RNA sequence: GUCUCUGAUGAUGAUCAAAAAUAUAACUUUCGUUCUUCUGAGAUUAACCAUGCGGAAAGUUAUGGAGACCUGAACUGAAGAGAC
Numbered sequence: 001g002u003c004u005c006u007g008a009u010g011a012u013g014a015u016c017a018a019a020a021a022u023a024u025a026a027c028u029u030u031c032g033u034u035c036u037u038c039u040g041a042g043a044u045u046a047a048c049c050a051u052g053c054g055g056a057a058a059g060u061u062a063u064g065g066a067g068a069c070c071u072g073a074a075c076u077g078a079a080g081a082g083a084c
Stems, first nucleotide, its partner, number of pairs: 003082004
The record is an 84-nucleotide RNA sequence from Nicotiana tabacum, which matches "Small nucleolar RNA Z159/U59" in Rfam. The source organism's lineage runs through Eukaryota, Tracheophyta, Pentapetalae, Nicotianoideae and Nicotiana. A search with the family's covariance model found it, with a score of 75 bits. Rfam classes the family as a C/D-box small nucleolar RNA. The family is grouped with related families in Rfam's "SNORD59 clan".